[Rfam]
A member of the RNA family "Y RNA" from Microcebus murinus, 110 nucleotides long.
Nucleotides: 110
Stems, first nucleotide, its partner, number of pairs: 001106008010098002014094002016089002019086003039071001041069001043067002
Number, partner (000 for none) and nucleotide at each position: 001106g002105g003104c004103u005102g006101g007100u008099c009000c010098a011097a012000a013000g014094g015093u016089a017088g018000c019086g020085a021084g022000u023000u024000a025000u026000c027000u028000c029000g030000c031000u032000u033000g034000a035000c036000u037000g038000u039071u040000c041069g042000u043067a044066g045000u046000c047000a048000c049000a050000g051000g052000u053000c054000a055000a056000a057000c058000g059000c060000c061000u062000u063000g064000u065000u066044c067043u068000c069041c070000u071039a072000u073000c074000u075000u076000g077000c078000c079000c080000c081000c082000u083000u084021c085020u086019c087000a088017c089016u090000a091000c092000u093015g094014c095000a096000g097011u098010u099008g100007a101006c102005u103004a104003g105002u106001c107000u108000u109000u110000a

Rfam's curators write: Y RNAs are components of the Ro ribonucleoprotein particle (Ro RNP), in association with Ro60 and La proteins. The Y RNAs and Ro60 and La proteins are well conserved, but the function of the Ro RNP is not known. In humans the RNA component can be one of four small RNAs -- hY1, hY3, hY4 and hY5. These small RNAs are predicted to fold into a conserved secondary structure containing three stem structures. The largest of the four, hY1, contains an additional hairpin. This family includes a significant number of annotated pseudogenes and the model is expected to discriminate poorly between real and Y RNA related pseudogenes.